[Rfam]
RNA: c-di-AMP riboswitch aptamer (ydaO/yuaA leader)
RNA sequence: GUGCUUCCGACACCACGACUCGUCAGGGCAGGGACGGGGGACCCAGGUUCUCCACGCCGUCCCCACGGCUAGGGGUGAAGCCGACCGCCGGAGCGAUCCGCGCGGCCGGCCGGGCCAACCUCACCGGCCCGAACCCGACAGCUCACCUCGCAGGCGUGCGGAGAGGGACA
Numbered sequence: 001g002u003g004c005u006u007c008c009g010a011c012a013c014c015a016c017g018a019c020u021c022g023u024c025a026g027g028g029c030a031g032g033g034a035c036g037g038g039g040g041a042c043c044c045a046g047g048u049u050c051u052c053c054a055c056g057c058c059g060u061c062c063c064c065a066c067g068g069c070u071a072g073g074g075g076u077g078a079a080g081c082c083g084a085c086c087g088c089c090g091g092a093g094c095g096a097u098c099c100g101c102g103c104g105g106c107c108g109g110c111c112g113g114g115c116c117a118a119c120c121u122c123a124c125c126g127g128c129c130c131g132a133a134c135c136c137g138a139c140a141g142c143u144c145a146c147c148u149c150g151c152a153g154g155c156g157u158g159c160g161g162a163g164a165g166g167g168a169c170a
Stems, first nucleotide, its partner, number of pairs: 005156001007154002013032002035150005044072001073136003081109003112130004